[Rfam]
RNA sequence: UUCUUAUCUAGAGAGGUAUAGGGACUGGCCCGAUGACACCUCAGCAACCAGCCAUUUCGGCACGGUGCUAAUUCCAGCAAGUCGGUAACAAGACUUGGUAGAUGAGGA
Dot-bracket structure: ((((((((....(((((...(((.[[[[)))......)))))((((.((.(((.....)))..))))))...(]]]]((((((........))))))..)))))))))

This 108-nucleotide RNA sequence from Filibacter tadaridae belongs to the Rfam family "SAM riboswitch aptamer (S box leader)".
Pairs were carried over by alignment from the consensus structure, which is taken from published work.